RNA sequence: AGCCGGGUAGUCUAGUGGUCAAGGAUCCAGGGCUCUGGCCCCUGGGACCAGGGUUCGAAUCCCUGCCCGGCUA
Numbered sequence: 001a002g003c004c005g006g007g008u009a010g011u012c013u014a015g016u017g018g019u020c021a022a023g024g025a026u027c028c029a030g031g032g033c034u035c036u037g038g039c040c041c042c043u044g045g046g047a048c049c050a051g052g053g054u055u056c057g058a059a060u061c062c063c064u065g066c067c068c069g070g071c072u073a
Stems, first nucleotide, its partner, number of pairs: 001072007010026004028044005049065005
Description
A member of the RNA family "tRNA" from Saccharolobus solfataricus, 73 nucleotides long. Transfer RNA (tRNA) molecules are approximately 80 nucleotides in length. Rfam links the family to the GO term triplet codon-amino acid adaptor activity. Rfam classes the family as a transfer RNA. Taxonomically the source falls in Saccharolobus solfataricus (Archaea, Thermoproteati, Thermoprotei, Sulfolobales).